[Rfam]
RNA sequence: CGUUGCUCAUUCUCCUGUCUAUGAUUGCCCCGCACUGCGGUUGAGCUCAUAAAAUAUCGAAUGACGCACCAAACGGAGCCUGCCGUCCACCCAACCGAUAAUCGCUUGCUUUGCAACGUUAUCAAGCACCGGACGCAACGUUGAGUUAGGCUCCACCUA
Numbered sequence: 001c002g003u004u005g006c007u008c009a010u011u012c013u014c015c016u017g018u019c020u021a022u023g024a025u026u027g028c029c030c031c032g033c034a035c036u037g038c039g040g041u042u043g044a045g046c047u048c049a050u051a052a053a054a055u056a057u058c059g060a061a062u063g064a065c066g067c068a069c070c071a072a073a074c075g076g077a078g079c080c081u082g083c084c085g086u087c088c089a090c091c092c093a094a095c096c097g098a099u100a101a102u103c104g105c106u107u108g109c110u111u112u113g114c115a116a117c118g119u120u121a122u123c124a125a126g127c128a129c130c131g132g133a134c135g136c137a138a139c140g141u142u143g144a145g146u147u148a149g150g151c152u153c154c155a156c157c158u159a
Stems, first nucleotide, its partner, number of pairs: 005067002007064006020051005027046002075154007084135005097123005137147003

Description: Shown here is a 159-nucleotide RNA sequence from a Plautia stali symbiont, a member of the family "Glm Y RNA activator of glmS mRNA". Pairs were carried over by alignment from the consensus structure, which is taken from published work. Lineage of the source: Bacteria > Pseudomonadati > Pseudomonadota > Enterobacterales > Enterobacteriaceae. Its Rfam clan is "Glm clan". Rfam describes the family as follows. This family consists of a number of bacterial RNA genes of around 167 bases in length. The tke1 RNA gene is present in Escherichia coli, Shigella flexneri, Yersinia pestis and Salmonella species where it is found between the yfhK and purL genes. The function of this RNA is unknown. A reference for the family is Rivas et al. (2001), "Computational identification of noncoding RNAs in E. coli by comparative genomics", Curr Biol.